[Rfam]
RNA sequence: GCAAGACACAACUUUAUAGUUCGUAUAACCUCGAUAAUUCGGUUCGGGGGCUCUACUGGGAACCUAAAUCCUAACUACGAACACAAUAUAUGCUCAU
Numbered sequence: 001g002c003a004a005g006a007c008a009c010a011a012c013u014u015u016a017u018a019g020u021u022c023g024u025a026u027a028a029c030c031u032c033g034a035u036a037a038u039u040c041g042g043u044u045c046g047g048g049g050g051c052u053c054u055a056c057u058g059g060g061a062a063c064c065u066a067a068a069u070c071c072u073a074a075c076u077a078c079g080a081a082c083a084c085a086a087u088a089u090a091u092g093c094u095c096a097u
Stems, first nucleotide, its partner, number of pairs: 019082007029049006057073005
RNA: Purine riboswitch aptamer